[Rfam]
RNA sequence: CUCUGGAAAGCUGGGCAAGGCUGUCUGGCACCGAAGAAGCAAUCCUCAUUGCGAGGAGAAUCUUUCAGGUAUGAAUGACGGGG
Numbered sequence: 001c002u003c004u005g006g007a008a009a010g011c012u013g014g015g016c017a018a019g020g021c022u023g024u025c026u027g028g029c030a031c032c033g034a035a036g037a038a039g040c041a042a043u044c045c046u047c048a049u050u051g052c053g054a055g056g057a058g059a060a061u062c063u064u065u066c067a068g069g070u071a072u073g074a075a076u077g078a079c080g081g082g083g
Stems, first nucleotide, its partner, number of pairs: 001083005011028004030070003033066002037064003043057004